[Rfam]
RNA sequence: CUGUCUCUUACUUCAACAGUGUUGAAUGGAACAG
Numbered sequence: 001c002u003g004u005c006u007c008u009u010a011c012u013u014c015a016a017c018a019g020u021g022u023u024g025a026a027u028g029g030a031a032c033a034g
Stems, first nucleotide, its partner, number of pairs: 001034004006030003010027001012026006
Iron response element I: a 34-nucleotide sequence from Carlito syrichta. It is annotated as a cis-regulatory element. Pairs were carried over by alignment from the consensus structure, which is taken from published work. A search with the family's covariance model found it, with a score of 42 bits. Rfam links the family to the GO term response to iron ion. Taxonomically the source falls in Carlito (Eukaryota, Gnathostomata, Mammalia, Tarsiiformes).